[Rfam]
RNA sequence: UCCAACCGCUGCCCGGACACUCCACUUCUUGCCCGGCGGCGGCAGCUUAAAGGAGGAAGAUCCGCUGUGACUGGCGGUGCGGCAGUGUGGAGACCUGUCGUAAUGCGGCGCGCCGGAAGGCGGCUGCGAGGCGGCUUUUUGCGGAGGCAGAGCGGCUACAGUCAAUAUGAAUAUGGCA
Numbered sequence: 001u002c003c004a005a006c007c008g009c010u011g012c013c014c015g016g017a018c019a020c021u022c023c024a025c026u027u028c029u030u031g032c033c034c035g036g037c038g039g040c041g042g043c044a045g046c047u048u049a050a051a052g053g054a055g056g057a058a059g060a061u062c063c064g065c066u067g068u069g070a071c072u073g074g075c076g077g078u079g080c081g082g083c084a085g086u087g088u089g090g091a092g093a094c095c096u097g098u099c100g101u102a103a104u105g106c107g108g109c110g111c112g113c114c115g116g117a118a119g120g121c122g123g124c125u126g127c128g129a130g131g132c133g134g135c136u137u138u139u140u141g142c143g144g145a146g147g148c149a150g151a152g153c154g155g156c157u158a159c160a161g162u163c164a165a166u167a168u169g170a171a172u173a174u175g176g177c178a
Stems, first nucleotide, its partner, number of pairs: 006042008015034002018031002062077004068164006078102008087094002105127005111122003130157003134153004140149003